[Rfam]
RNA: Archaeal large subunit ribosomal RNA, nucleotides 1695 to 2052
Nucleotides: 358
Base pairs, nucleotide, nucleotide: 001326002325003324004323010321011320012319013318014317015316016315017314019312020311021310036060037059038058039057040056045050061083062082063081064080065079066078067077068076084088096305097304098303099302100301101300102299103297104296107121108120109119124159125158126157127156128155129154131152132149135146136145137144138143162292163291164290165289167222168221169220172219174215175214176213177212178211181210182209183208189202190201191200192199223241224240225239226238227237228236242246262278263277264276265275266274267273339356340355341354342353343352
Number, partner (000 for none) and nucleotide at each position: 001326u002325g003324g004323a005000u006000g007000u008000a009000a010321c011320c012319c013318a014317g015316g016315u017314u018000a019312g020311g021310g022000a023000a024000u025000u026000c027000g028000g029000c030000a031000a032000g033000u034000u035000a036060g037059u038058g039057g040056c041000a042000u043000a044000a045050g046000u047000u048000u049000u050045c051000g052000a053000u054000a055000a056040g057039c058038c059037a060036u061083g062082u063081c064080u065079g066078c067077g068076c069000c070000u071000a072000g073000u074000a075000a076068g077067c078066g079065c080064a081063g082062a083061u084088a085000u086000c087000a088084u089000u090000u091000a092000c093000a094000a095000g096305g097304g098303a099302a100301c101300a102299a103297c104296g105000a106000c107121u108120g109119u110000u111000u112000a113000u114000u115000u116000a117000a118000a119109a120108c121107a122000c123000a124159a125158c126157u127156c128155a129154c130000c131152g132149c133000a134000a135146a136145g137144c138143c139000g140000a141000a142000a143138g144137g145136c146135u147000a148000a149132g150000u151000a152131c153000a154129g155128u156127g157126g158125g159124u160000g161000a162292c163291g164290c165289c166000u167222g168221c169220u170000c171000a172219c173000c174215a175214c176213u177212a178211g179000u180000a181210c182209g183208u184000g185000a186000a187000u188000a189202c190201c191200c192199g193000u194000u195000u196000c197000a198000a199192c200191g201190g202189g203000a204000g205000u206000a207000a208183g209182c210181g211178c212177u213176a214175g215174u216000a217000a218000a219172g220169a221168g222167c223241g224240g225239g226238a227237g228236u229000a230000a231000c232000u233000c234000u235000g236228a237227c238226u239225c240224u241223c242246u243000u244000a245000a246242g247000g248000u249000a250000g251000c252000g253000u254000a255000a256000u257000a258000c259000c260000u261000c262278g263277u264276c265275a266274c267273u268000u269000a270000a271000u272000a273267g274266g275265u276264g277263a278262c279000u280000u281000g282000c283000a284000u285000g286000a287000a288000u289165g290164g291163c292162g293000u294000a295000a296104c297103g298000a299102u300101u301100g302099u303098u304097c305096c306000a307000c308000u309000g310021u311020c312019c313000c314017a315016a316015c317014c318013u319012g320011g321010g322000a323004u324003c325002c326001a327000a328000u329000g330000a331000a332000c333000u334000c335000a336000c337000u338000a339356c340355g341354c342353g343352g344000u345000g346000a347000a348000c349000a350000u351000g352343c353342c354341g355340c356339g357000a358000u